[Rfam]
RNA: Small nucleolar RNA SNORD63
RNA sequence: AUGCUAUGAUGUUUUGUCAACACAUCAUUCUGAAAAAAAGUAUGUGGUGACGUCCUGUGACUGAGCAUA
Numbered sequence: 001a002u003g004c005u006a007u008g009a010u011g012u013u014u015u016g017u018c019a020a021c022a023c024a025u026c027a028u029u030c031u032g033a034a035a036a037a038a039a040g041u042a043u044g045u046g047g048u049g050a051c052g053u054c055c056u057g058u059g060a061c062u063g064a065g066c067a068u069a
Stems, first nucleotide, its partner, number of pairs: 001068004